[Rfam]
RNA: Mammalian CPEB3 ribozyme
RNA sequence: AUAAAACAUUGGGGUCAUUGUAGAAACGUGCUCGUCGCGACCCCUGCCAGCCCUUUUCAGGGCUGCAAUUCUACA
Numbered sequence: 001a002u003a004a005a006a007c008a009u010u011g012g013g014g015u016c017a018u019u020g021u022a023g024a025a026a027c028g029u030g031c032u033c034g035u036c037g038c039g040a041c042c043c044c045u046g047c048c049a050g051c052c053c054u055u056u057u058c059a060g061g062g063c064u065g066c067a068a069u070u071c072u073a074c075a
Stems, first nucleotide, its partner, number of pairs: 011044006019075007027037002048065007